About this RNA
ZMP/ZTP riboswitch aptamer (pfl RNA motif): an 83-nucleotide RNA from Oceanobacillus halophilus.
[Rfam]
RNA sequence: AUUGUCAUAUGUAACUGGCGAAACACGGAUAACCGUGAGGGAGCAUGUGGCAAGUGAUGUAGCCGUUCGCCUGGGCAGAGGUA
Dot-bracket structure: ..((((((((((..(([[[[[...((((....))))..))..)))))))))).......(.(((..]]]]]..))).).....

A search with the family's covariance model found it, with a score of 61 bits. The base pairs follow the family's consensus structure, which is taken from published work. Taxonomically the source falls in Oceanobacillus (Bacteria, Bacillati, Bacillota, Bacilli).